[Rfam]
Overview:
Shown here is a 137-nucleotide sequence from Tumebacillus flagellatus, a member of the family "PyrR binding site". By type it is a cis-regulatory element. Taxonomically the source falls in Tumebacillus (Bacteria, Bacillota, Bacilli, Caryophanales). The family's consensus secondary structure is taken from published work. Rfam describes the family as follows. This family represents the PyrR binding site and terminator structure. This RNA structure is found upstream of a variety of genes involved in pyrimidine biosynthesis and transport.
RNA sequence: GCACUCUUUAAACGAGUCCUGUGAGGCGCGCAAGAGUGUACGGUUCGACCCAAGCACCGUCCGUCUGUCUAGGCACAGGCGGACGGCACAGGGUCGGCGUGUACCCUCUCCCGCGUCGGCAGGAGAGGGUUUUUUUC
Number, nucleotide and partner (000 for none) at each position: 001g000002c000003a037004c036005u035006c034007u033008u032009u000010a000011a000012a000013c030014g029015a000016g027017u026018c025019c000020u000021g000022u000023g000024a000025g018026g017027c016028g000029c014030g013031c000032a008033a007034g006035a005036g004037u003038g000039u000040a000041c000042g000043g000044u000045u000046c000047g000048a000049c000050c000051c000052a000053a000054g000055c000056a000057c086058c085059g084060u083061c082062c081063g080064u079065c078066u077067g076068u075069c000070u000071a000072g000073g000074c000075a068076c067077a066078g065079g064080c063081g062082g061083a060084c059085g058086g057087c000088a000089c000090a000091g000092g000093g000094u000095c000096g000097g000098c000099g000100u000101g132102u000103a130104c129105c128106c127107u126108c125109u124110c123111c122112c000113g120114c119115g000116u000117c000118g000119g114120c113121a000122g111123g110124a109125g108126a107127g106128g105129g104130u103131u000132u101133u000134u000135u000136u000137c000